This 65-nucleotide RNA sequence from Pseudonocardia halophobica belongs to the Rfam family "Fluoride riboswitch aptamer (crcB RNA motif)". Taxonomically the source falls in Pseudonocardia (Bacteria, Actinomycetota, Actinomycetes, Pseudonocardiaceae).
[Rfam]
RNA sequence: AUCUCCUGCGGCGAUGGAGCCCGCCCUCAACCGCCCGGCAACGGGCUGAUGGCCCCUACCUGAUC
Numbered sequence: 001a002u003c004u005c006c007u008g009c010g011g012c013g014a015u016g017g018a019g020c021c022c023g024c025c026c027u028c029a030a031c032c033g034c035c036c037g038g039c040a041a042c043g044g045g046c047u048g049a050u051g052g053c054c055c056c057u058a059c060c061u062g063a064u065c
Stems, first nucleotide, its partner, number of pairs: 010025004016056002019053003033046004